Annotation:
A member of the RNA family "FMN riboswitch aptamer (RFN element)" from Emcibacter nanhaiensis, 158 nucleotides long. The base pairs follow the family's consensus structure, which is taken from published work. Taxonomically the source falls in Emcibacter (Bacteria, Pseudomonadati, Alphaproteobacteria, Emcibacteraceae). The match comes from Rfam's covariance-model search (110 bits).
RNA sequence: GCGAGUUCUCAGGGCGGGGUGGAAUUCCCCACCGGCGGUGAGGGGCUCAGGCCUCAAGCCCGCGAGCGCCAUCUGCCUGUGGUUUAUCGCAGAUGGGUCAAGCAGAUUCGGUGAAACUCCGAAGCCGACGGUCAUAGUCCGGAUGGAAGAGAGCGAAA
Number, nucleotide and partner (000 for none) at each position: 001g000002c000003g000004a000005g154006u153007u152008c151009u150010c149011a000012g000013g000014g000015c000016g000017g029018g028019g027020u000021g000022g000023a000024a000025u000026u000027c019028c018029c017030c000031a138032c137033c127034g126035g063036c062037g061038g060039u000040g000041a000042g000043g000044g000045g000046c000047u000048c000049a000050g000051g000052c000053c000054u000055c000056a000057a000058g125059c124060c038061c037062g036063c035064g000065a000066g103067c102068g000069c000070c000071a000072u000073c000074u000075g000076c000077c000078u000079g000080u000081g000082g000083u000084u000085u000086a000087u000088c000089g000090c000091a000092g000093a000094u000095g000096g000097g000098u000099c000100a000101a000102g067103c066104a000105g000106a000107u123108u122109c121110g120111g119112u000113g000114a000115a000116a000117c000118u000119c111120c110121g109122a108123a107124g059125c058126c034127g033128a000129c141130g140131g139132u000133c000134a000135u000136a000137g032138u031139c131140c130141g129142g000143a000144u000145g000146g000147a000148a000149g010150a009151g008152a007153g006154c005155g000156a000157a000158a000